RNA sequence: GAGGCGAUAUCCGCAAGGAAUCGCACUCGAAAGAUGCAGCUUUCAAUCUGAUUUACAUUCAUUUUCCCGAAAAAUUGAAUACGUUUCAAGCAAGUAUGUCGGAUUCUGCUCUGAGCCUUAUGGACCGAGACAGAAGG
Dot-bracket structure: ((((((((.((......))))))).))).............................................................................((((((.(..((....)).).))).)))....
The family of this 137-nucleotide sequence from Paenibacillus piri is "pan motif". The family's consensus secondary structure is taken from published work. It scores 40 bits against the family's covariance model. The family's RNA type in Rfam is cis-regulatory element.